The family of this 196-nucleotide RNA from Roseospira marina is "Manganese Mn2+ riboswitch aptamer (yybP-ykoY)". The organism belongs to Roseospira, within Bacteria. This RNA was originally discovered in E. coli during a large scale screen and was named SraF. The family was later found to exist upstream of related families of protein genes in many bacteria, including the the yybP and ykoK genes in B. subtilis. The specific functions of these proteins are unknown, but this structured RNA element may be involved in their genetic regulation as a riboswitch.
[Rfam]
RNA sequence: CCGAACGGGGAGUAGCGACCGCCCAUUGGCGGGAGCGUGUCAACAUACUCGCGGCACAUCCGCGUGGCACGCUCGGCCUUCGCGAAGUCGGCCCCUUGGGGACGACUACGCGUGGUUUCGCGAGACCGUGGCACAAGCACACGGCCGCCAACACAGGCUGUGUGUUGCUUGGUGUGGCCACGCGUCGUAAAGGACC
Dot-bracket structure: ...................(((......))).((((((((((.......(((((.....)))))))))))))))(.((((.............................................................................................................)))).).
Numbered sequence: 001c002c003g004a005a006c007g008g009g010g011a012g013u014a015g016c017g018a019c020c021g022c023c024c025a026u027u028g029g030c031g032g033g034a035g036c037g038u039g040u041c042a043a044c045a046u047a048c049u050c051g052c053g054g055c056a057c058a059u060c061c062g063c064g065u066g067g068c069a070c071g072c073u074c075g076g077c078c079u080u081c082g083c084g085a086a087g088u089c090g091g092c093c094c095c096u097u098g099g100g101g102a103c104g105a106c107u108a109c110g111c112g113u114g115g116u117u118u119c120g121c122g123a124g125a126c127c128g129u130g131g132c133a134c135a136a137g138c139a140c141a142c143g144g145c146c147g148c149c150a151a152c153a154c155a156g157g158c159u160g161u162g163u164g165u166u167g168c169u170u171g172g173u174g175u176g177g178c179c180a181c182g183c184g185u186c187g188u189a190a191a192g193g194a195c196c
Stems, first nucleotide, its partner, number of pairs: 020031003033074010050064005075195001077193004